[Rfam]
RNA sequence: ACCAAGCCCUGAGGAUCGCUGUCGUUGACAGCACCAGCCCAGGUAGCCCGAACCUUCAAGGCUACGCCACUGCGUGGUGGUUCUCCCUAAGUGCGAUCAGCAUCCGGUGGCUCGCACGGUCACAACGCCGUUGUGAUGGAUGC
Numbered sequence: 001a002c003c004a005a006g007c008c009c010u011g012a013g014g015a016u017c018g019c020u021g022u023c024g025u026u027g028a029c030a031g032c033a034c035c036a037g038c039c040c041a042g043g044u045a046g047c048c049c050g051a052a053c054c055u056u057c058a059a060g061g062c063u064a065c066g067c068c069a070c071u072g073c074g075u076g077g078u079g080g081u082u083c084u085c086c087c088u089a090a091g092u093g094c095g096a097u098c099a100g101c102a103u104c105c106g107g108u109g110g111c112u113c114g115c116a117c118g119g120u121c122a123c124a125a126c127g128c129c130g131u132u133g134u135g136a137u138g139g140a141u142g143c
Base pairs, nucleotide, nucleotide: 013035014034018032019031020030021029022028023027043065044064045063046062047061048060051082052081053080054079066078067077068076069075070074113142114141119137120136121135122134123133124132125131126130

The record is a 143-nucleotide RNA from Pseudomonas fluorescens, which matches "radC RNA" in Rfam. NCBI's taxonomy places the organism under Bacteria, Gammaproteobacteria, Pseudomonadales, Pseudomonas, Pseudomonas fluorescens. Rfam classes the family as a cis-regulatory element. A search with the family's covariance model found it, with a score of 92 bits.